Shown here is an 86-nucleotide RNA sequence from Prunus davidiana, a member of the family "Plastid-psbM 3UTR RNA". Pairs were carried over by alignment from the consensus structure, which was predicted with LocARNA.
RNA sequence: UACGAUAGUAUGGUAGAAAGAAAUAUCUGAAUCUUUCUACCAUACUAUCUAGUAUUGUGUAUAAAGUUGUAUUGUAAUACAGGUUA
Number, nucleotide and partner (000 for none) at each position: 001u000002a000003c000004g049005a048006u047007a046008g045009u044010a043011u042012g041013g040014u039015a038016g037017a036018a035019a034020g033021a026022a000023a000024u000025a000026u021027c000028u000029g000030a000031a000032u000033c020034u019035u018036u017037c016038u015039a014040c013041c012042a011043u010044a009045c008046u007047a006048u005049c004050u000051a000052g000053u000054a000055u000056u000057g000058u000059g000060u000061a000062u000063a000064a000065a000066g000067u000068u000069g000070u000071a000072u000073u000074g000075u000076a000077a000078u000079a000080c000081a000082g000083g000084u000085u000086a000